[Rfam]
RNA sequence: CUGCUUCGCCCUUCUUGGGCGUUUCCUCCCUAAACUCAGGCCGCUGUUCGUCAGCGGCCUUUUUUCUGCCAGAA
Numbered sequence: 001c002u003g004c005u006u007c008g009c010c011c012u013u014c015u016u017g018g019g020c021g022u023u024u025c026c027u028c029c030c031u032a033a034a035c036u037c038a039g040g041c042c043g044c045u046g047u048u049c050g051u052c053a054g055c056g057g058c059c060u061u062u063u064u065u066c067u068g069c070c071a072g073a074a
Stems, first nucleotide, its partner, number of pairs: 008020004039059008